[Rfam]
This 94-nucleotide RNA from Enterobacter sp. 638 belongs to the Rfam family "MicF RNA". The match comes from Rfam's covariance-model search (101 bits). About the family: The micF gene is a stress response gene found in Escherichia coli and related bacteria that post-transcriptionally controls expression of the outer membrane porin gene ompF. The micF gene encodes a non-translated 93 nt antisense RNA that binds its target ompF mRNA and regulates ompF expression by inhibiting translation and inducing degradation of the message. In addition, other factors, such as the RNA chaperone protein StpA also play a role in this regulatory system. Expression of micF is controlled by both environmental and internal stress factors. The literature on the family includes a 2001 paper in J Mol Biol by Delihas and Forst, "MicF: an antisense RNA gene involved in response of Escherichia coli to global stress factors". The base pairs follow the family's consensus structure.
RNA sequence: CGCUAUCAUCAUUAACUUUAUUUAUUACCGUCAUUCAUUUUUGAAUGUCUGUUUAUCCCUAAUUGAGCCGAGUGCAAUGCAUUCGGUUUUUUUU
Number, nucleotide and partner (000 for none) at each position: 001c000002g000003c000004u000005a000006u000007c000008a000009u000010c000011a000012u000013u000014a000015a000016c000017u000018u000019u000020a000021u000022u000023u000024a000025u000026u000027a000028c000029c000030g000031u000032c000033a046034u045035u044036c043037a042038u000039u000040u000041u000042u037043g036044a035045a034046u033047g000048u000049c000050u000051g000052u000053u000054u000055a000056u000057c000058c000059c000060u000061a000062a000063u000064u000065g000066a088067g087068c086069c085070g084071a083072g082073u081074g080075c079076a000077a000078u000079g075080c074081a073082u072083u071084c070085g069086g068087u067088u066089u000090u000091u000092u000093u000094u000